[Rfam]
RNA sequence: ACCGUUCUUGUCUUGGAGAGCAUAAUGUCCAGGGAUCGUUAAGUGAGGGCAUUGUUGCUGACAACGAAAAAUUUAUUCUACGCACCCUUACCAAGGGCAUCGCCCGGGUUAAGAGGUGCAAUUUUUGGAAGC
Numbered sequence: 001a002c003c004g005u006u007c008u009u010g011u012c013u014u015g016g017a018g019a020g021c022a023u024a025a026u027g028u029c030c031a032g033g034g035a036u037c038g039u040u041a042a043g044u045g046a047g048g049g050c051a052u053u054g055u056u057g058c059u060g061a062c063a064a065c066g067a068a069a070a071a072u073u074u075a076u077u078c079u080a081c082g083c084a085c086c087c088u089u090a091c092c093a094a095g096g097g098c099a100u101c102g103c104c105c106g107g108g109u110u111a112a113g114a115g116g117u118g119c120a121a122u123u124u125u126u127g128g129a130a131g132c
Stems, first nucleotide, its partner, number of pairs: 005019002008016002020058003024053007037043001082119005087113001090109002095105004
RNA: U4atac minor spliceosomal RNA
Organism: Cimex lectularius